[Rfam]
Nucleotides: 216
Stems, first nucleotide, its partner, number of pairs: 011201004018034006035196006045098001099181003107155007158175004
Number, partner (000 for none) and nucleotide at each position: 001000g002000u003000c004000g005000g006000g007000g008000c009000a010000c011201c012200g013199c014198c015000g016000a017000g018034u019033c020032c021031g022030c023029g024000c025000a026000c027000c028000a029023c030022g031021c032020g033019g034018a035196g036195c037194c038193g039192g040191g041000g042000a043000a044000c045098c046000a047000g048000g049000u050000u051000c052000g053000u054000c055000g056000g057000c058000g059000u060000g061000g062000c063000c064000g065000g066000u067000c068000g069000c070000a071000g072000c073000a074000g075000c076000a077000g078000c079000g080000c081000g082000c083000a084000g085000a086000c087000c088000g089000g090000c091000g092000g093000c094000g095000c096000c097000a098045g099181g100180g101179g102000u103000g104000a105000a106000u107155c108154g109153g110152u111151c112150g113149g114000c115000g116000u117000c118000g119000g120000c121000g122000c123000g124000c125000c126000c127000c128000g129000g130000a131000a132000g133000g134000g135000g136000c137000g138000u139000g140000u141000g142000c143000g144000g145000c146000c147000g148000c149113c150112c151111g152110a153109c154108c155107g156000u157000a158175g159174g160173g161172c162000u163000a164000c165000u166000u167000c168000u169000u170000c171000g172161g173160c174159c175158c176000g177000a178000a179101u180100c181099c182000g183000u184000c185000a186000g187000c188000u189000a190000a191040c192039c193038c194037g195036g196035u197000a198014g199013g200012c201011g202000g203000a204000c205000g206000a207000g208000a209000a210000g211000g212000a213000g214000u215000u216000g
Rfam assigns this 216-nucleotide sequence from Catenulispora sp. to the family "c-di-AMP riboswitch aptamer (ydaO/yuaA leader)". Lineage of the source: Bacteria > Actinomycetota > Actinomycetes > Catenulisporales > Catenulispora. Rfam describes the family as follows. This family represents a conserved RNA structure found upstream of the ydaO and yuaA genes in Bacillus subtilis and related genes in other bacteria. The match comes from Rfam's covariance-model search (55 bits).